[Rfam]
RNA sequence: AAGGCUCCGGUUCACGAGCGGCGCACCCGUGCCGCACGACCCGGCGGCA
Numbered sequence: 001a002a003g004g005c006u007c008c009g010g011u012u013c014a015c016g017a018g019c020g021g022c023g024c025a026c027c028c029g030u031g032c033c034g035c036a037c038g039a040c041c042c043g044g045c046g047g048c049a
Stems, first nucleotide, its partner, number of pairs: 004048002007044004015038002018035006
Dot-bracket structure: ...((.((((....((.((((((......)))))).))..))))..)).
RNA: L31-Actinobacteria ribosomal protein leader